Rfam assigns this 149-nucleotide RNA sequence from Apis cerana to the family "U12 minor spliceosomal RNA". Its Rfam clan is "U2 clan".
RNA sequence: GUGCCUUAAACUAAUGAGUAAGGAAAAUAUAGAGCUUUGGUAACGCUUAGCUAUGCUAAUUAUCAAGCGACCAUAUUUUUGAAGGGGCAAAGGUCGUCCCAUGGUAACGCGACUACUUUUUCGCGUGGCCGGGUGAAGCGAUCUACCUC
Numbered sequence: 001g002u003g004c005c006u007u008a009a010a011c012u013a014a015u016g017a018g019u020a021a022g023g024a025a026a027a028u029a030u031a032g033a034g035c036u037u038u039g040g041u042a043a044c045g046c047u048u049a050g051c052u053a054u055g056c057u058a059a060u061u062a063u064c065a066a067g068c069g070a071c072c073a074u075a076u077u078u079u080u081g082a083a084g085g086g087g088c089a090a091a092g093g094u095c096g097u098c099c100c101a102u103g104g105u106a107a108c109g110c111g112a113c114u115a116c117u118u119u120u121u122c123g124c125g126u127g128g129c130c131g132g133g134u135g136a137a138g139c140g141a142u143c144u145a146c147c148u149c
Base pairs, nucleotide, nucleotide: 004023005022006021007020008019033052034051035050036049039046054070055068056067057066084149085148086147087146091144092143093142094141095140096139097138099133100132102131103130104129105128108125109124110123111122112121